RNA sequence: CCUUGACAGAGAAUUAACUCUGACAUUUGCCAAGACAAGGAGAUUGAUAUG
Numbered sequence: 001c002c003u004u005g006a007c008a009g010a011g012a013a014u015u016a017a018c019u020c021u022g023a024c025a026u027u028u029g030c031c032a033a034g035a036c037a038a039g040g041a042g043a044u045u046g047a048u049a050u051g
Stems, first nucleotide, its partner, number of pairs: 002039004007022005
The record is a 51-nucleotide RNA, which matches "Mu-gpT-DE RNA" in Rfam. The family's RNA type in Rfam is small RNA. The sequence is in the family's curated seed alignment. Pairs were carried over by alignment from the consensus structure, which is taken from published work.